Rfam assigns this 77-nucleotide RNA from Alligator mississippiensis to the family "Mammalian CPEB3 ribozyme". About the family: The mammalian CPEB3 ribozyme is a self cleaving RNA located in the second intron of the CPEB3 gene which belongs to a family of genes regulating messenger RNA polyadenylation. This ribozyme is highly conserved and found only in mammals. The CPEB3 ribozyme is structurally and biochemically related to the human hepatitis delta virus (HDV) ribozyme and the HDV ribozyme is proposed to have arisen from the human transcriptome. There is currently only one other known self cleaving ribozyme in mammals, the CoTC motif. Lineage of the source: Eukaryota > Vertebrata > Euteleostomi > Sauria > Alligator.

RNA sequence: AGGUCACAAACUUGAGGCCACAGCAGAAGCGCUCCCGGCACAGCAUGUCAGAUUCCAACAAAUCUGUGAAUUCUGCU
Numbered sequence: 001a002g003g004u005c006a007c008a009a010a011c012u013u014g015a016g017g018c019c020a021c022a023g024c025a026g027a028a029g030c031g032c033u034c035c036c037g038g039c040a041c042a043g044c045a046u047g048u049c050a051g052a053u054u055c056c057a058a059c060a061a062a063u064c065u066g067u068g069a070a071u072u073c074u075g076c077u
Stems, first nucleotide, its partner, number of pairs: 013045001017044002022077007029041001031039001049066006